This 102-nucleotide sequence belongs to the Rfam family "RT-5 RNA". The sequence is in the family's curated seed alignment. The family's consensus secondary structure is taken from published work.
[Rfam]
RNA sequence: UUGCACCUGCAGCGGGCGCAGCAUGGUCCUUGUGGUACUUUGCAGGUAGUCGGCCAUGUAUCGUUCGGUAAGAUUAGAAAUUUUCUAAUCUUUAAGGUUUUC
Number, nucleotide and partner (000 for none) at each position: 001u000002u000003g000004c000005a047006c046007c045008u044009g043010c042011a041012g000013c067014g066015g065016g000017c063018g062019c000020a000021g059022c058023a057024u056025g055026g054027u000028c053029c052030u000031u000032g000033u000034g000035g051036u000037a050038c049039u048040u000041u011042g010043c009044a008045g007046g006047u005048a039049g038050u037051c035052g029053g028054c026055c025056a024057u023058g022059u021060a000061u000062c018063g017064u000065u015066c014067g013068g000069u000070a000071a000072g000073a000074u088075u087076a086077g085078a084079a083080a000081u000082u000083u079084u078085c077086u076087a075088a074089u000090c000091u000092u000093u000094a000095a000096g000097g000098u000099u000100u000101u000102c000